Selenocysteine insertion sequence 1: a 64-nucleotide RNA sequence from Salarias fasciatus. It scores 39 bits against the family's covariance model. Rfam's curators write: The incorporation of selenocysteine into a protein sequence is directed by an in-frame UGA codon (usually a stop codon) within the coding region of the mRNA. Selenoprotein mRNAs contain a conserved secondary structure in the 3' UTR that is required for the distinction of UGA stop from UGA selenocysteine. The source organism's lineage runs through Eukaryota, Actinopterygii, Actinopteri, Euteleosteomorpha and Salarias.
[Rfam]
RNA sequence: GCCAGCUAAUGAUGACCUGCGCUAAAACCCAGAAGUGGGGAGCGCAGGCCUGAUGUCGCCUGGC
Numbered sequence: 001g002c003c004a005g006c007u008a009a010u011g012a013u014g015a016c017c018u019g020c021g022c023u024a025a026a027a028c029c030c031a032g033a034a035g036u037g038g039g040g041a042g043c044g045c046a047g048g049c050c051u052g053a054u055g056u057c058g059c060c061u062g063g064c
Stems, first nucleotide, its partner, number of pairs: 001064005014050001016048008029038003